[Rfam]
Rfam assigns this 76-nucleotide sequence from Danio rerio to the family "let-7 microRNA precursor family".
RNA sequence: CCAGGCUGAGGUAGUAGGUUGUAUGGUUUAGAAUUUUGCCCUGGGAGUUAACUGUACAACCUUCUAGCUUUCCUUG
Numbered sequence: 001c002c003a004g005g006c007u008g009a010g011g012u013a014g015u016a017g018g019u020u021g022u023a024u025g026g027u028u029u030a031g032a033a034u035u036u037u038g039c040c041c042u043g044g045g046a047g048u049u050a051a052c053u054g055u056a057c058a059a060c061c062u063u064c065u066a067g068c069u070u071u072c073c074u075u076g
Base pairs, nucleotide, nucleotide: 001076003074004073005072008070009069010068012066013065014064016062017061018060019059020058021057022056023055024054025053026052027051040047
This family represents the microRNAs (miRNA) let-7 and mir-98. let-7 was identified from a study of developmental timing in C. elegans, and was later shown to be part of a much larger class of non-coding RNAs termed miRNAs. Its family is annotated with miRNA-mediated post-transcriptional gene silencing and RISC complex in the Gene Ontology. Lineage of the source: Eukaryota > Deuterostomia > Osteoglossocephalai > Cypriniphysae > Danio. The family is grouped with related families in Rfam's "let-7 microRNA precursor clan". Pairs were carried over by alignment from the consensus structure, which was predicted with RNAalifold. A search with the family's covariance model found it, with a score of 68 bits.